[Rfam]
RNA sequence: CUUAUCCAGGUCUGUGGUUGCGGAGGUGAUCUCCUCCUAGUUCAUGGCAGACGAGGCCAAAAGGAUCCACGUAAGUUCGGGCGUGCGCGCCCGAGCGAGCAUGGCUCGUCCUAGAAGUAAGACGCACCGCCCGCAACUCUUGAGGCAUACGGCCUCACGGGCGAGAGGGCCAGUAGUGGGGGGCCGUGUAGCCCCGAAGCGACCGUCCCAGUGUGCGAGUGUGGGGUCAAAUACCAGGUCAGCUGGAUAAG
Numbered sequence: 001c002u003u004a005u006c007c008a009g010g011u012c013u014g015u016g017g018u019u020g021c022g023g024a025g026g027u028g029a030u031c032u033c034c035u036c037c038u039a040g041u042u043c044a045u046g047g048c049a050g051a052c053g054a055g056g057c058c059a060a061a062a063g064g065a066u067c068c069a070c071g072u073a074a075g076u077u078c079g080g081g082c083g084u085g086c087g088c089g090c091c092c093g094a095g096c097g098a099g100c101a102u103g104g105c106u107c108g109u110c111c112u113a114g115a116a117g118u119a120a121g122a123c124g125c126a127c128c129g130c131c132c133g134c135a136a137c138u139c140u141u142g143a144g145g146c147a148u149a150c151g152g153c154c155u156c157a158c159g160g161g162c163g164a165g166a167g168g169g170c171c172a173g174u175a176g177u178g179g180g181g182g183g184c185c186g187u188g189u190a191g192c193c194c195c196g197a198a199g200c201g202a203c204c205g206u207c208c209c210a211g212u213g214u215g216c217g218a219g220u221g222u223g224g225g226g227u228c229a230a231a232u233a234c235c236a237g238g239u240c241a242g243c244u245g246g247a248u249a250a251g
Stems, first nucleotide, its partner, number of pairs: 001251009012242003015236004044222003047057001050110006066104002076094002079091002102229001123215005128163005167208004176200002182193003

This 251-nucleotide sequence from Olsenella sp. KH1P3 belongs to the Rfam family "raiA RNA". A search with the family's covariance model found it, with a score of 170 bits.